[Rfam]
RNA sequence: GUUGCAGUUCCUGGAAUUAAGUUGACUGUGUAGCCUGUGAGGGCAAGGCUUGAAUAAUGCUCCUGAAGUCAGCAACUUGAUUCCAGCAAUUGCGGCCC
Numbered sequence: 001g002u003u004g005c006a007g008u009u010c011c012u013g014g015a016a017u018u019a020a021g022u023u024g025a026c027u028g029u030g031u032a033g034c035c036u037g038u039g040a041g042g043g044c045a046a047g048g049c050u051u052g053a054a055u056a057a058u059g060c061u062c063c064u065g066a067a068g069u070c071a072g073c074a075a076c077u078u079g080a081u082u083c084c085a086g087c088a089a090u091u092g093c094g095g096c097c098c
Stems, first nucleotide, its partner, number of pairs: 001096009011086014026072003029065002032061003